[Rfam]
RNA sequence: AAACUGAGAAAAGGGUGAUUGAAAAGAAUAUGUUCUCUAUGUCUCUCUUUCUCCAAUAAAUGGAGGGAAUUAGGGAAAUCAAAGUGUCUAGAUAUCGUUUCAGUUGCCCUUUCGUCUUUAGUUGGCGACUUGAUUGUUGACUCGAUCACAU
Number, nucleotide and partner (000 for none) at each position: 001a000002a000003a000004c000005u000006g053007a052008g051009a050010a049011a048012a000013g045014g044015g043016u000017g040018a000019u000020u000021g000022a000023a000024a000025a000026g000027a000028a000029u000030a000031u000032g000033u000034u000035c000036u000037c000038u000039a000040u017041g000042u000043c015044u014045c013046u000047c000048u011049u010050u009051c008052u007053c006054c000055a000056a000057u000058a000059a000060a000061u000062g000063g000064a000065g000066g000067g000068a000069a000070u000071u000072a000073g000074g000075g000076a000077a000078a000079u000080c000081a000082a000083a000084g000085u000086g147087u000088c144089u000090a142091g141092a000093u000094a134095u133096c132097g131098u000099u000100u000101c000102a000103g129104u128105u127106g126107c125108c124109c000110u000111u121112u120113c000114g000115u000116c000117u000118u000119u000120a112121g111122u000123u000124g108125g107126c106127g105128a104129c103130u000131u097132g096133a095134u094135u000136g000137u000138u000139g000140a000141c091142u090143c000144g088145a000146u000147c086148a000149c000150a000151u000
RNA: Small nucleolar RNA snoR111